[Rfam]
RNA sequence: UAGCAUGCUAUCCUAAGGACCUGUGCUCACUUGUGGCUUGUGGUUCUCCAAGUGCAUGCUAGAAAAGUGGGCGGUCUUUGACUGCGGCGGCUGGUUUGUGCCGCCUGCAGCCACUCAGCCGCCCGACACUU
Numbered sequence: 001u002a003g004c005a006u007g008c009u010a011u012c013c014u015a016a017g018g019a020c021c022u023g024u025g026c027u028c029a030c031u032u033g034u035g036g037c038u039u040g041u042g043g044u045u046c047u048c049c050a051a052g053u054g055c056a057u058g059c060u061a062g063a064a065a066a067g068u069g070g071g072c073g074g075u076c077u078u079u080g081a082c083u084g085c086g087g088c089g090g091c092u093g094g095u096u097u098g099u100g101c102c103g104c105c106u107g108c109a110g111c112c113a114c115u116c117a118g119c120c121g122c123c124c125g126a127c128a129c130u131u
Base pairs, nucleotide, nucleotide: 014042015041019038021036022035023034024033025032069124070123071122072121073120074119084111085110087104088103089102090101
RNA: Small nucleolar RNA SNORA44
Organism: Oryzias melastigma